[Rfam]
RNA: permuted transfer-messenger RNA
Organism: Pseudolabrys taiwanensis
RNA sequence: GGCGAUAAACGGCCGUCGAAAUAAACCCAUCGGACCCGGGGGCAGUACCCGGCGGCUCCACCAGUGUCGCUCAGAUUACGAGGCGCCCGUCGCGGCGGAACCUGGGUUCCAGGUUCCAAGGCCGGCGGGGCCGGUCCUCCCGAAAGGGCGGACUGCGGGGCGACACUGGCGGGGCCGAACUAGGAUCGACGAGGGCGUAAAGGGCGUUCUUUCGCUCGGCAUGGUUCCGCCGAUAUCGGGCCAUUCUCAUAGUUGCCAACGACAACUAUGCUCCGGUUGCUCAGGCUGCGUAA
Numbered sequence: 001g002g003c004g005a006u007a008a009a010c011g012g013c014c015g016u017c018g019a020a021a022u023a024a025a026c027c028c029a030u031c032g033g034a035c036c037c038g039g040g041g042g043c044a045g046u047a048c049c050c051g052g053c054g055g056c057u058c059c060a061c062c063a064g065u066g067u068c069g070c071u072c073a074g075a076u077u078a079c080g081a082g083g084c085g086c087c088c089g090u091c092g093c094g095g096c097g098g099a100a101c102c103u104g105g106g107u108u109c110c111a112g113g114u115u116c117c118a119a120g121g122c123c124g125g126c127g128g129g130g131c132c133g134g135u136c137c138u139c140c141c142g143a144a145a146g147g148g149c150g151g152a153c154u155g156c157g158g159g160g161c162g163a164c165a166c167u168g169g170c171g172g173g174g175c176c177g178a179a180c181u182a183g184g185a186u187c188g189a190c191g192a193g194g195g196c197g198u199a200a201a202g203g204g205c206g207u208u209c210u211u212u213c214g215c216u217c218g219g220c221a222u223g224g225u226u227c228c229g230c231c232g233a234u235a236u237c238g239g240g241c242c243a244u245u246c247u248c249a250u251a252g253u254u255g256c257c258a259a260c261g262a263c264a265a266c267u268a269u270g271c272u273c274c275g276g277u278u279g280c281u282c283a284g285g286c287u288g289c290g291u292a293a
Stems, first nucleotide, its partner, number of pairs: 001216005014206004026195003030192003036052005053177007217232004